The record is a 103-nucleotide RNA sequence from Bacillus mesophilus, which matches "Purine riboswitch aptamer" in Rfam. The family's consensus secondary structure is taken from published work.
[Rfam]
RNA sequence: AUUAUAUAGAUUAGUUUACCUCGUAUAAUUUUGGGAUUAUGGCCCAUAAGUUUCUACCCAAUAACCGAUAAUUUAUUGGACUAUGAGGGAAAGUGUUACGGGG
Numbered sequence: 001a002u003u004a005u006a007u008a009g010a011u012u013a014g015u016u017u018a019c020c021u022c023g024u025a026u027a028a029u030u031u032u033g034g035g036a037u038u039a040u041g042g043c044c045c046a047u048a049a050g051u052u053u054c055u056a057c058c059c060a061a062u063a064a065c066c067g068a069u070a071a072u073u074u075a076u077u078g079g080a081c082u083a084u085g086a087g088g089g090a091a092a093g094u095g096u097u098a099c100g101g102g103g
Stems, first nucleotide, its partner, number of pairs: 019088007029049002032046004058079007